[Rfam]
Shown here is a 75-nucleotide RNA from Leptocoma aspasia, a member of the family "Small nucleolar RNA SNORD34". The family's consensus secondary structure was predicted with PFOLD. Rfam's curators write: snoRNA U34 is found in intron 5 of the ribosomal protein L13a gene in humans. It is annotated as a C/D-box small nucleolar RNA. Taxonomically the source falls in Leptocoma (Eukaryota, Eumetazoa, Archosauria, Saurischia).
RNA sequence: CGGUGUCUGUGAUGUCACUGUUUUACCUACAUUGUUUGACUCCUGCUGAGAAAAACCCAAAAUCCUGAGACACCU
Numbered sequence: 001c002g003g004u005g006u007c008u009g010u011g012a013u014g015u016c017a018c019u020g021u022u023u024u025a026c027c028u029a030c031a032u033u034g035u036u037u038g039a040c041u042c043c044u045g046c047u048g049a050g051a052a053a054a055a056c057c058c059a060a061a062a063u064c065c066u067g068a069g070a071c072a073c074c075u
Base pairs, nucleotide, nucleotide: 002074004072005071006070007069